[Rfam]
RNA sequence: ACACGAGAAAGGAGGUGGUCCAGCAGUGAACAGCUACAGGACUCGUGAGGUGGCCGUCCGCUAGGACGGUAUGCGGACCACCGCGUGCCGCCCGGCGAAUACCAGGCGGUCACCGACCCCCGAUGCUCCCGAGGACCGGUCCACCACGGGCCCGGACGGCUGACGACGUCCGGGAGUCGCAUCGGGGGUUUCCCU
Numbered sequence: 001a002c003a004c005g006a007g008a009a010a011g012g013a014g015g016u017g018g019u020c021c022a023g024c025a026g027u028g029a030a031c032a033g034c035u036a037c038a039g040g041a042c043u044c045g046u047g048a049g050g051u052g053g054c055c056g057u058c059c060g061c062u063a064g065g066a067c068g069g070u071a072u073g074c075g076g077a078c079c080a081c082c083g084c085g086u087g088c089c090g091c092c093c094g095g096c097g098a099a100u101a102c103c104a105g106g107c108g109g110u111c112a113c114c115g116a117c118c119c120c121c122g123a124u125g126c127u128c129c130c131g132a133g134g135a136c137c138g139g140u141c142c143a144c145c146a147c148g149g150g151c152c153c154g155g156a157c158g159g160c161u162g163a164c165g166a167c168g169u170c171c172g173g174g175a176g177u178c179g180c181a182u183c184g185g186g187g188g189u190u191u192c193c194c195u
Base pairs, nucleotide, nucleotide: 014058015057016056017055018054019053059097060096061095062094064092065091067090068089069088070087072085073084074083115190116189117188118187119186120185121184122183123182124181125180126179128174129173130172131171